Shown here is a 170-nucleotide sequence from Clostridium sp. CAG:307, a member of the family "Lysine riboswitch aptamer".
[Rfam]
RNA sequence: AAAUAAAAUAGAGGUAGCGGUGCAUCAUAGUACUUUAUGGAGGAGGCGUCCUUAGAAGUAAAGGAAAGGUAAUCAUCGCCGAACAUUUUAGCUAGGCAUGGCUAUUUUGUGGGACUAUAGAAAAUAUCUAUAGUACUCCUACUAGUAAUAGUAGAGGCGCUAACAAUAAU
Numbered sequence: 001a002a003a004u005a006a007a008a009u010a011g012a013g014g015u016a017g018c019g020g021u022g023c024a025u026c027a028u029a030g031u032a033c034u035u036u037a038u039g040g041a042g043g044a045g046g047c048g049u050c051c052u053u054a055g056a057a058g059u060a061a062a063g064g065a066a067a068g069g070u071a072a073u074c075a076u077c078g079c080c081g082a083a084c085a086u087u088u089u090a091g092c093u094a095g096g097c098a099u100g101g102c103u104a105u106u107u108u109g110u111g112g113g114a115c116u117a118u119a120g121a122a123a124a125u126a127u128c129u130a131u132a133g134u135a136c137u138c139c140u141a142c143u144a145g146u147a148a149u150a151g152u153a154g155a156g157g158c159g160c161u162a163a164c165a166a167u168a169a170u
Base pairs, nucleotide, nucleotide: 009162010161011160017079018078019077020076021075022074025071033063034062035061036060037059038058083110084109085108089104090103091102092101093100094099111137112136114134115133116132117131118130119129120128121127139154140153141152142151143150144149